[Rfam]
RNA sequence: CGGUAUGAAUAAUCGAUUAAAACCGUCACUUUGCGUGACAACAUCGAUUCACCCAUCAUGGAUG
Numbered sequence: 001c002g003g004u005a006u007g008a009a010u011a012a013u014c015g016a017u018u019a020a021a022a023c024c025g026u027c028a029c030u031u032u033g034c035g036u037g038a039c040a041a042c043a044u045c046g047a048u049u050c051a052c053c054c055a056u057c058a059u060g061g062a063u064g
Stems, first nucleotide, its partner, number of pairs: 011049007025039005050064002053061002